[Rfam]
RNA: Bacterial RNase P class A
Nucleotides: 317
Base pairs, nucleotide, nucleotide: 001313002312003311004310005309006308007307008306009305010304011303012267013266014265015264016263017262018261020038021037022036023035024034025033026032027031043301044300045299047298048297049296050295051294052169053168054167055166059202060201061200062199064165065164066163067162068161069083070082071081072080073079084104085102086101087100088099089098090097091096105160106159110158111157112154113153127142128141129140130139131138173224174223175222176221184214185213186212187211188210194206195205196204197203231250232249233248234247235246236245237244238243
Number, partner (000 for none) and nucleotide at each position: 001313a002312a003311a004310g005309c006308a007307g008306a009305u010304c011303a012267c013266c014265u015264u016263a017262u018261c019000g020038c021037u022036u023035u024034a025033u026032g027031u028000a029000a030000a031027a032026u033025a034024u035023a036022a037021a038020g039000a040000g041000g042000a043301a044300a045299g046000u047298c048297c049296g050295g051294a052169c053168a054167c055166c056000a057000u058000a059202g060201c061200g062199u063000a064165g065164c066163a067162u068161a069083g070082c071081g072080g073079g074000u075000a076000a077000c078000u079073c080072c081071c082070g083069u084104c085102a086101u087100c088099u089098u090097g091096a092000u093000u094000a095000c096091u097090c098089g099088a100087g101086a102085u103000a104084g105160g106159a107000c108000a109000a110158g111157u112154g113153c114000a115000g116000c117000a118000g119000a120000a121000a122000g123000u124000a125000u126000g127142u128141a129140c130139a131138g132000g133000u134000a135000a136000u137000g138131c139130u140129g141128u142127a143000g144000u145000g146000a147000a148000a149000c150000c151000a152000g153113g154112u155000a156000a157111a158110c159106u160105c161068u162067a163066u164065g165064c166055g167054g168053u169052g170000c171000a172000a173224c174223g175222u176221c177000a178000u179000g180000u181000a182000a183000a184214c185213c186212a187211g188210c189000u190000u191000u192000a193000a194206g195205g196204g197203u198000u199062g200061c201060g202059c203197g204196c205195c206194c207000a208000a209000c210188g211187u212186u213185g214184g215000a216000g217000g218000g219000u220000a221176g222175a223174c224173g225000g226000u227000u228000u229000g230000a231250g232249c233248u234247a235246a236245u237244a238243a239000g240000u241000a242000a243238u244237u245236g246235u247234u248233a249232g250231u251000c252000u253000a254000g255000a256000u257000a258000a259000a260000u261018g262017a263016u264015a265014a266013g267012g268000a269000u270000a271000u272000u273000c274000g275000u276000u277000u278000c279000g280000a281000c282000g283000a284000g285000g286000a287000a288000a289000c290000a291000g292000a293000a294051u295050c296049c297048g298047g299045c300044u301043u302000a303011u304010g305009a306008u307007c308006u309005g310004c311003u312002u313001u314000u315000u316000u317000u